Source information
Potassium channel RNA editing signal: a 114-nucleotide RNA from Albula goreensis. Rfam links the family to the GO term adenosine to inosine editing. NCBI's taxonomy places the organism under Eukaryota, Eumetazoa, Craniata, Euteleostomi, Albula. The match comes from Rfam's covariance-model search (97 bits).

[Rfam]
RNA sequence: CUGGGCUAUGGGGACAUGUACCCGGUCACGUGGUCAGGGAUGUUAGUUGGCGCACUGUGUGCUUUGGCCGGCGUGUUGACCAUCGCCAUGCCUGUCCCCGUCAUUGUCAACAAC
Numbered sequence: 001c002u003g004g005g006c007u008a009u010g011g012g013g014a015c016a017u018g019u020a021c022c023c024g025g026u027c028a029c030g031u032g033g034u035c036a037g038g039g040a041u042g043u044u045a046g047u048u049g050g051c052g053c054a055c056u057g058u059g060u061g062c063u064u065u066g067g068c069c070g071g072c073g074u075g076u077u078g079a080c081c082a083u084c085g086c087c088a089u090g091c092c093u094g095u096c097c098c099c100g101u102c103a104u105u106g107u108c109a110a111c112a113a114c
Stems, first nucleotide, its partner, number of pairs: 002113001004111001008107004013102003018097001020095002037077002040074001049063003
Dot-bracket structure: .(.(...((((.(((..(.((...............((.(........(((.........)))..........).))................)).)..))).))))...).).